Rfam assigns this 128-nucleotide RNA from Pogona vitticeps to the family "Small nucleolar RNA SNORD22". The family's consensus secondary structure was predicted with PFOLD. Rfam links the family to the GO terms RNA processing and nucleolus. The source organism's lineage runs through Eukaryota, Gnathostomata, Sauria, Amphibolurinae and Pogona.
RNA sequence: UCCCAAUGAAGAAAUCCUAUCACGUCUUACCUUCUGUCUCGGCGCCAGAACCUGCAAAGGUUGAACCCACUGGGGCCGGCAGAGGGAGAAGAGGACGCUGUGCUCCGGACGGAGCUGUCUGACGGGAC
Numbered sequence: 001u002c003c004c005a006a007u008g009a010a011g012a013a014a015u016c017c018u019a020u021c022a023c024g025u026c027u028u029a030c031c032u033u034c035u036g037u038c039u040c041g042g043c044g045c046c047a048g049a050a051c052c053u054g055c056a057a058a059g060g061u062u063g064a065a066c067c068c069a070c071u072g073g074g075g076c077c078g079g080c081a082g083a084g085g086g087a088g089a090a091g092a093g094g095a096c097g098c099u100g101u102g103c104u105c106c107g108g109a110c111g112g113a114g115c116u117g118u119c120u121g122a123c124g125g126g127a128c
Stems, first nucleotide, its partner, number of pairs: 001127004